[Rfam]
RNA sequence: CCUGUGGACUGUUAUAUCAAAUGUUAGUAGGGUGUGCAAACACUACGAGGACAGACAGGGCGAAGCAGGAA
Number, nucleotide and partner (000 for none) at each position: 001c069002c068003u067004g066005u065006g000007g000008a000009c058010u057011g056012u055013u054014a000015u000016a000017u000018c000019a000020a000021a000022u053023g052024u051025u000026a000027g000028u000029a000030g046031g000032g044033u000034g000035u042036g041037c000038a000039a000040a000041c036042a035043c000044u032045a000046c030047g000048a000049g000050g000051a024052c023053a022054g013055a012056c011057a010058g009059g000060g000061c000062g000063a000064a000065g005066c004067a003068g002069g001070a000071a000
About this RNA
The record is a 71-nucleotide RNA sequence, which matches "RAGATH-18 RNA" in Rfam. By type it is a small RNA.